[Rfam]
RNA sequence: UUCUUCACAAACACCUGCCGCUUGACCGAGACUAGGCAGGUCUAACAAUCCGUCUCUCAUAUCCUCACCUGAGGGUGGUGAGGAAAUAGUAUCUCCA
Numbered sequence: 001u002u003c004u005u006c007a008c009a010a011a012c013a014c015c016u017g018c019c020g021c022u023u024g025a026c027c028g029a030g031a032c033u034a035g036g037c038a039g040g041u042c043u044a045a046c047a048a049u050c051c052g053u054c055u056c057u058c059a060u061a062u063c064c065u066c067a068c069c070u071g072a073g074g075g076u077g078g079u080g081a082g083g084a085a086a087u088a089g090u091a092u093c094u095c096c097a
Stems, first nucleotide, its partner, number of pairs: 014040005021035002028056005062083002065080001068077001
RNA: PhotoRC-II RNA